The record is a 131-nucleotide sequence from Oryzias sinensis, which matches "Small nucleolar RNA SNORA44" in Rfam. Its family is annotated with nucleolus and RNA processing in the Gene Ontology. The match comes from Rfam's covariance-model search (66 bits). The family's RNA type in Rfam is H/ACA-box small nucleolar RNA. The organism belongs to Oryzias, within Eukaryota. A reference for the family is Huttenhofer et al. (2001), "RNomics: an experimental approach that identifies 201 candidates for novel, small, non-messenger RNAs in mouse", EMBO J. Rfam describes the family as follows. ACA44 is a member of the H/ACA class of snoRNA that guide the sites of modification of uridines to pseudouridines.

RNA sequence: UGGCAUGCUAUCCUAAGGACCUGUGCUCACUUGUAGCUUGUGGUUCUCCAAGUGCAUGCCAGAAAAGUGGGCGGUCUUUGACUGUGGCGGCCUGUGCGUGCCGCCAACAGCCACUCAGCUGCCCGACAAUG
Numbered sequence: 001u002g003g004c005a006u007g008c009u010a011u012c013c014u015a016a017g018g019a020c021c022u023g024u025g026c027u028c029a030c031u032u033g034u035a036g037c038u039u040g041u042g043g044u045u046c047u048c049c050a051a052g053u054g055c056a057u058g059c060c061a062g063a064a065a066a067g068u069g070g071g072c073g074g075u076c077u078u079u080g081a082c083u084g085u086g087g088c089g090g091c092c093u094g095u096g097c098g099u100g101c102c103g104c105c106a107a108c109a110g111c112c113a114c115u116c117a118g119c120u121g122c123c124c125g126a127c128a129a130u131g
Stems, first nucleotide, its partner, number of pairs: 014042002019038001021036005069124006084111002087104004